[Rfam]
RNA sequence: GGAAUAUAAGAACCCGUCUCUUAACUUUUAACUAAAAAAACUAAGAACCAGCUUUUAAAUAUCUUAUUUAAGAGUCGGUUCUUAGUUUUUUUAGUUAAAGAGACGGGUUCUUAUAUUUC
Numbered sequence: 001g002g003a004a005u006a007u008a009a010g011a012a013c014c015c016g017u018c019u020c021u022u023a024a025c026u027u028u029u030a031a032c033u034a035a036a037a038a039a040a041c042u043a044a045g046a047a048c049c050a051g052c053u054u055u056u057a058a059a060u061a062u063c064u065u066a067u068u069u070a071a072g073a074g075u076c077g078g079u080u081c082u083u084a085g086u087u088u089u090u091u092u093a094g095u096u097a098a099a100g101a102g103a104c105g106g107g108u109u110c111u112u113a114u115a116u117u118u119c
Base pairs, nucleotide, nucleotide: 001119002118003117004116005115006114007113008112009111010110011109012108013107014106015105016104017103018102019101020100021099028098029097030096031095032094033093034092035091036090037089038088039087041085042084043083044082045081046080047079
RNA: MIR9563 microRNA precursor family